This 163-nucleotide sequence from Hoeflea prorocentri belongs to the Rfam family "FMN riboswitch aptamer (RFN element)". Rfam 15.1 lists 6,230 matches to the family in 5,120 species. It scores 114 bits against the family's covariance model. The source organism's lineage runs through Bacteria, Pseudomonadati, Pseudomonadota, Rhizobiaceae and Hoeflea. The family's consensus secondary structure is taken from published work.
[Rfam]
RNA sequence: AUUCGUUCUCAGGGCGGGGUGAAACUCCCCACCGGCGGUAACGAAACCCGGUGCGCAAGUGCCGCUUUCGAAGCCCGCGAGCGCCCGGUCUUAUGGACCGGGGUCAGCAGAUUCGGUGUGAAUCCGAAGCCGACGGUUAUAGUCCGGAUGGAAGAGAACGGGU
Numbered sequence: 001a002u003u004c005g006u007u008c009u010c011a012g013g014g015c016g017g018g019g020u021g022a023a024a025c026u027c028c029c030c031a032c033c034g035g036c037g038g039u040a041a042c043g044a045a046a047c048c049c050g051g052u053g054c055g056c057a058a059g060u061g062c063c064g065c066u067u068u069c070g071a072a073g074c075c076c077g078c079g080a081g082c083g084c085c086c087g088g089u090c091u092u093a094u095g096g097a098c099c100g101g102g103g104u105c106a107g108c109a110g111a112u113u114c115g116g117u118g119u120g121a122a123u124c125c126g127a128a129g130c131c132g133a134c135g136g137u138u139a140u141a142g143u144c145c146g147g148a149u150g151g152a153a154g155a156g157a158a159c160g161g162g163u
Stems, first nucleotide, its partner, number of pairs: 003161008017029003031143002033132002035078004073130002081108002112128005134146003